Shown here is a 54-nucleotide sequence from Clarias magur, a member of the family "UnaL2 LINE 3' element". The family's consensus secondary structure is taken from published work. Rfam describes the family as follows. The eel long interspersed element (LINE) UnaL2 and its partner short interspersed element (SINE) share a conserved 3' tail containing a stem-loop that is critical for their retrotransposition. Rfam 15.1 lists 493,311 matches to the family in 99 species. The source organism's lineage runs through Eukaryota, Opisthokonta, Actinopteri, Neopterygii and Clarias.
RNA sequence: GUAUGGGCUUUUUGUAAGUCGCUCUGGAUAAGAGCGUCUGCCAAAUGCCUAAAU
Numbered sequence: 001g002u003a004u005g006g007g008c009u010u011u012u013u014g015u016a017a018g019u020c021g022c023u024c025u026g027g028a029u030a031a032g033a034g035c036g037u038c039u040g041c042c043a044a045a046u047g048c049c050u051a052a053a054u
Stems, first nucleotide, its partner, number of pairs: 013043001014041003020036006
Dot-bracket structure: ............((((...((((((.....))))))..))).)...........